[Rfam]
A member of the RNA family "drum RNA" from Lachnospiraceae bacterium A4, 109 nucleotides long.
Firmicutes, Bacteroidetes (1 example), Proteobacteria (2 examples), Spirochaetes (2 examples).
The family's consensus secondary structure is taken from published work.
RNA sequence: AUACGUUGAUGAUAAGUGGCGGUCUGCCAUCCGCUGUUUAUUAGAGUAUUACAAGGGUAUCCUUUACCAAAGGGCAGAUAGCUAUCUAAAGCGAAAGAAAAGGACUUGC
Numbered sequence: 001a002u003a004c005g006u007u008g009a010u011g012a013u014a015a016g017u018g019g020c021g022g023u024c025u026g027c028c029a030u031c032c033g034c035u036g037u038u039u040a041u042u043a044g045a046g047u048a049u050u051a052c053a054a055g056g057g058u059a060u061c062c063u064u065u066a067c068c069a070a071a072g073g074g075c076a077g078a079u080a081g082c083u084a085u086c087u088a089a090a091g092c093g094a095a096a097g098a099a100a101a102g103g104a105c106u107u108g109c
Base pairs, nucleotide, nucleotide: 001049002048003047004046011042012041013040014039015038016037017036018035019034020033021032022031024077025076026075027074060104061103062102081092082091083090
By type it is a small RNA.